[Rfam]
RNA sequence: GCAUGGCUGAAUACUGUGUUUUUUUAUCAGUAGUUUACACAGCCAGACACCAUGCAAAAGUAAAGUCUUCUUUUAAAAUAACUAUGAUGUUAUGCUAUGUUUUUUAUAGCAUAUCAUUAUUAAAAGUGGAUACAAAU
Numbered sequence: 001g002c003a004u005g006g007c008u009g010a011a012u013a014c015u016g017u018g019u020u021u022u023u024u025u026a027u028c029a030g031u032a033g034u035u036u037a038c039a040c041a042g043c044c045a046g047a048c049a050c051c052a053u054g055c056a057a058a059a060g061u062a063a064a065g066u067c068u069u070c071u072u073u074u075a076a077a078a079u080a081a082c083u084a085u086g087a088u089g090u091u092a093u094g095c096u097a098u099g100u101u102u103u104u105u106a107u108a109g110c111a112u113a114u115c116a117u118u119a120u121u122a123a124a125a126g127u128g129g130a131u132a133c134a135a136a137u
Base pairs, nucleotide, nucleotide: 001055002054003053004052005051006050014042015041016040017039018038019037068130069129070128071126072125073124074123075121076120085119086118087117088116089115091113092112093111094110095109096108097107
RNA: Small nucleolar RNA SNORA15